[Rfam]
RNA sequence: ACCUUCUUUAUAAAGUUCUGUGCUAAAAUUGACUAAAACCAGGUUUUAUCUUGGUUUUGUUGAUGAUGCUAGCAGAGAAUAAAAGGGAAGAAAAUUAUAUGCACUGUAUUGGAAAUGAGGAGAGGUCGGGCCUCUUUCUUAAUGUCCAUUGACCUUCUGCUCAAAAUCCAGUGCCACAUUG
Number, nucleotide and partner (000 for none) at each position: 001a000002c000003c000004u000005u000006c000007u000008u000009u000010a000011u000012a000013a000014a000015g000016u000017u000018c077019u076020g000021u074022g073023c072024u071025a070026a000027a000028a067029u066030u065031g064032a000033c000034u000035a058036a057037a000038a055039c054040c053041a052042g051043g050044u000045u000046u000047u000048a000049u000050c043051u042052u041053g040054g039055u038056u000057u036058u035059g000060u000061u000062g000063a000064u031065g030066a029067u028068g000069c000070u025071a024072g023073c022074a021075g000076a019077g018078a000079a000080u000081a000082a000083a000084a000085g000086g000087g000088a000089a000090g000091a000092a000093a000094a000095u000096u000097a000098u000099a000100u000101g174102c173103a172104c171105u170106g169107u000108a167109u000110u000111g000112g000113a000114a000115a000116u000117g000118a000119g000120g000121a000122g000123a000124g000125g150126u000127c000128g147129g146130g145131c000132c000133u000134c000135u000136u000137u000138c000139u000140u000141a000142a000143u000144g000145u130146c129147c128148a000149u000150u125151g000152a000153c000154c000155u000156u000157c000158u000159g000160c000161u000162c000163a000164a000165a000166a000167u108168c000169c106170a105171g104172u103173g102174c101175c000176a000177c000178a000179u000180u000181g000